[Rfam]
The record is a 69-nucleotide RNA from Saccharothrix australiensis, which matches "ASpks TB sRNA" in Rfam.
A reference for the family is Arnvig and Young (2009), "Identification of small RNAs in Mycobacterium tuberculosis", Mol Microbiol.

RNA sequence: CUUCACCGAGCCCAACCACAGCGGCUCGUCGCGGUCCUGGCCGUAGGCGGCCAGCAACGCCUGCGCCUC
Numbered sequence: 001c002u003u004c005a006c007c008g009a010g011c012c013c014a015a016c017c018a019c020a021g022c023g024g025c026u027c028g029u030c031g032c033g034g035u036c037c038u039g040g041c042c043g044u045a046g047g048c049g050g051c052c053a054g055c056a057a058c059g060c061c062u063g064c065g066c067c068u069c
Stems, first nucleotide, its partner, number of pairs: 014026001016024002032059002037054003041050003
Dot-bracket structure: .............(.((.....)).).....((...(((.(((....))).)))...))..........
It is annotated as an antisense RNA.